[Rfam]
RNA sequence: UGAGUUGGCCAGGCAAUCGCCGCUUUAUUCAUACUUGUAUGUUUUAGAGGGGAGGAAAGUCCGGGCUCCACAGGGCAGGGUGCCAGAUAACGUCUGGGCGGCGUAAGCCGACGACAAGUGCAGCAGAGAGAAGACCGCCAGGUGUUUACACUUGGUAAGGGUGAAAGGGUGCGGUAAGAGCGCACCGCGUCGCUGGCAACAGUUGACGGCAAGGUAAACUCCACCCGGAGCAAGACCAAAUAGGUUCCCUUAUGGCGCGGCCCGCGUUGGGAACGGGUAGGUUGCUUGAGCCAAUGAGCGAUUAUUGGCCUAGACGAAUGAUUGUCCAAGACAGAACCCGGCUUACCGGCCAACUCAACUU
Numbered sequence: 001u002g003a004g005u006u007g008g009c010c011a012g013g014c015a016a017u018c019g020c021c022g023c024u025u026u027a028u029u030c031a032u033a034c035u036u037g038u039a040u041g042u043u044u045u046a047g048a049g050g051g052g053a054g055g056a057a058a059g060u061c062c063g064g065g066c067u068c069c070a071c072a073g074g075g076c077a078g079g080g081u082g083c084c085a086g087a088u089a090a091c092g093u094c095u096g097g098g099c100g101g102c103g104u105a106a107g108c109c110g111a112c113g114a115c116a117a118g119u120g121c122a123g124c125a126g127a128g129a130g131a132a133g134a135c136c137g138c139c140a141g142g143u144g145u146u147u148a149c150a151c152u153u154g155g156u157a158a159g160g161g162u163g164a165a166a167g168g169g170u171g172c173g174g175u176a177a178g179a180g181c182g183c184a185c186c187g188c189g190u191c192g193c194u195g196g197c198a199a200c201a202g203u204u205g206a207c208g209g210c211a212a213g214g215u216a217a218a219c220u221c222c223a224c225c226c227g228g229a230g231c232a233a234g235a236c237c238a239a240a241u242a243g244g245u246u247c248c249c250u251u252a253u254g255g256c257g258c259g260g261c262c263c264g265c266g267u268u269g270g271g272a273a274c275g276g277g278u279a280g281g282u283u284g285c286u287u288g289a290g291c292c293a294a295u296g297a298g299c300g301a302u303u304a305u306u307g308g309c310c311u312a313g314a315c316g317a318a319u320g321a322u323u324g325u326c327c328a329a330g331a332c333a334g335a336a337c338c339c340g341g342c343u344u345a346c347c348g349g350c351c352a353a354c355u356c357a358a359c360u361u
Stems, first nucleotide, its partner, number of pairs: 001357010012326007020052002023049005057344003061341005066230004073263004078226005083097005098112001099110004113221002118219002120215002135160002137156008168186006187210001188208005193202003234283004244274006254268005290309008